Burkholderia sRNA 1: a 102-nucleotide sequence from Paraburkholderia humisilvae. The match comes from Rfam's covariance-model search (86 bits). A reference for the family is Sass et al. (2017), "Identification of small RNAs abundant in Burkholderia cenocepacia biofilms reveal putative regulators with a potential role in carbon and iron metabolism", Sci Rep. Rfam links the family to the GO term bacterial biofilm matrix. Identified by RNA-seq, RACE and Northern blot. Strongly expressed in biofilm.

RNA sequence: AGUUCUGCUGCACCCGAAUUUUGCAGGUGGAGAACGAGGAGACAUGAGGCGCUAAGCGCCCACACGAAAGCGCUGUUGGACUGGGUCCAACAGCGCUUUUUA
Numbered sequence: 001a002g003u004u005c006u007g008c009u010g011c012a013c014c015c016g017a018a019u020u021u022u023g024c025a026g027g028u029g030g031a032g033a034a035c036g037a038g039g040a041g042a043c044a045u046g047a048g049g050c051g052c053u054a055a056g057c058g059c060c061c062a063c064a065c066g067a068a069a070g071c072g073c074u075g076u077u078g079g080a081c082u083g084g085g086u087c088c089a090a091c092a093g094c095g096c097u098u099u100u101u102a
Base pairs, nucleotide, nucleotide: 002035003034004033005032009031011029012028013027014026015023016022017021039065045062046061048060049059050058051057052056067099068098069097070096071095072094073093074092075091076090077089078088079087080086